Shown here is a 97-nucleotide RNA sequence from Zizania palustris, a member of the family "small nucleolar RNA snoR126". Its family is annotated with RNA processing and nucleolus in the Gene Ontology. The source organism's lineage runs through Eukaryota, Euphyllophyta, Liliopsida, Oryzoideae and Zizania. A search with the family's covariance model found it, with a score of 70 bits.
RNA sequence: UGGCUGUGAUGACAAAACCUUUGUUUCUUGAUGCUAAGACUUGAUUUGUUGAAGGACCAAAAUUUAUUUUGAUGACCUUUGUGCGUGUCUGAGCCAC
Numbered sequence: 001u002g003g004c005u006g007u008g009a010u011g012a013c014a015a016a017a018c019c020u021u022u023g024u025u026u027c028u029u030g031a032u033g034c035u036a037a038g039a040c041u042u043g044a045u046u047u048g049u050u051g052a053a054g055g056a057c058c059a060a061a062a063u064u065u066a067u068u069u070u071g072a073u074g075a076c077c078u079u080u081g082u083g084c085g086u087g088u089c090u091g092a093g094c095c096a097c
Base pairs, nucleotide, nucleotide: 001096002095003094004093